Shown here is a 353-nucleotide RNA from an Actinomycetota bacterium, a member of the family "transfer-messenger RNA". The source organism's lineage runs through Bacteria, Bacillati and Actinomycetota. Pairs were carried over by alignment from the consensus structure, which is taken from published work. A search with the family's covariance model found it, with a score of 147 bits. The family is grouped with related families in Rfam's "tRNA clan". On this family, see Zwieb et al., Nucleic Acids Res 2003: "tmRDB (tmRNA database)".

[Rfam]
RNA sequence: GGGGGCGACUGGUUUCGACACGAUAGGCUUGACGGAAGAAGCAGGCCGAGAUCUCCUCGUCUCGUAAAACAGGGGUACCGACGCAUAAACGUCGACAAUGAUUACGCCCUCGCUGCCUAAAUAGUGCAGCGACGCCGACCCGAUGAGCGUCCCCGUCAUCGGUAAGGCGCCACUUAGGGGACUGCUGCAGCACACGUAGGCGGUAUGGUGUUGCUUAUAGCCUGAACCGCCAUGGACGACGCACCGCGUGUCAUCAGGUAAUGCGCCGGCCGAGAACUCACUGAUGACUGAGCCUGGAGAUGCUUCCCGAUCGUGUAUCGUGGACCGGAGUUCGAUUCUCCGCGCCUCCACCA
Numbered sequence: 001g002g003g004g005g006c007g008a009c010u011g012g013u014u015u016c017g018a019c020a021c022g023a024u025a026g027g028c029u030u031g032a033c034g035g036a037a038g039a040a041g042c043a044g045g046c047c048g049a050g051a052u053c054u055c056c057u058c059g060u061c062u063c064g065u066a067a068a069a070c071a072g073g074g075g076u077a078c079c080g081a082c083g084c085a086u087a088a089a090c091g092u093c094g095a096c097a098a099u100g101a102u103u104a105c106g107c108c109c110u111c112g113c114u115g116c117c118u119a120a121a122u123a124g125u126g127c128a129g130c131g132a133c134g135c136c137g138a139c140c141c142g143a144u145g146a147g148c149g150u151c152c153c154c155g156u157c158a159u160c161g162g163u164a165a166g167g168c169g170c171c172a173c174u175u176a177g178g179g180g181a182c183u184g185c186u187g188c189a190g191c192a193c194a195c196g197u198a199g200g201c202g203g204u205a206u207g208g209u210g211u212u213g214c215u216u217a218u219a220g221c222c223u224g225a226a227c228c229g230c231c232a233u234g235g236a237c238g239a240c241g242c243a244c245c246g247c248g249u250g251u252c253a254u255c256a257g258g259u260a261a262u263g264c265g266c267c268g269g270c271c272g273a274g275a276a277c278u279c280a281c282u283g284a285u286g287a288c289u290g291a292g293c294c295u296g297g298a299g300a301u302g303c304u305u306c307c308c309g310a311u312c313g314u315g316u317a318u319c320g321u322g323g324a325c326c327g328g329a330g331u332u333c334g335a336u337u338c339u340c341c342g343c344g345c346c347u348c349c350a351c352c353a
Base pairs, nucleotide, nucleotide: 001349002348003347004346005345006344007343019322020321021320022319023318024317025316027314028313034307035306036305037304038303040301042296043295044294045293046292047064048063049062050061051060053075054074055073056072057071110132111131112130113129114128115127116126133169134168135167136166140162141161142160143159144158145157146156149182150181151180152179153178154177192211193210199231200230201229202228203227234271235270237268238267240265241264242263243262247257250288251287252286253285254284255283256282326342327341328340329339330338